[Rfam]
RNA sequence: CAUCUUACAAGGCAGUUUUGGAUGUUAUAUCUUCUCUAAUACUGCCUGGUAAUGAUGC
Numbered sequence: 001c002a003u004c005u006u007a008c009a010a011g012g013c014a015g016u017u018u019u020g021g022a023u024g025u026u027a028u029a030u031c032u033u034c035u036c037u038a039a040u041a042c043u044g045c046c047u048g049g050u051a052a053u054g055a056u057g058c
Base pairs, nucleotide, nucleotide: 001057002056003055004054005052006051007050008049010047011046012045013044014043015042016041018039019038020037021036022035

mir-8/mir-141/mir-200 microRNA precursor family: a 58-nucleotide sequence from Ictalurus punctatus. The literature on the family includes a 2001 paper in Science by Lagos-Quintana et al., "Identification of novel genes coding for small expressed RNAs". Taxonomically the source falls in Ictalurus (Eukaryota, Opisthokonta, Ostariophysi, Siluriformes). Its Rfam clan is "mir-8 microRNA precursor clan". Rfam 15.1 lists 2,669 matches to the family in 883 species. The base pairs follow the family's consensus structure, which was predicted with RNAalifold.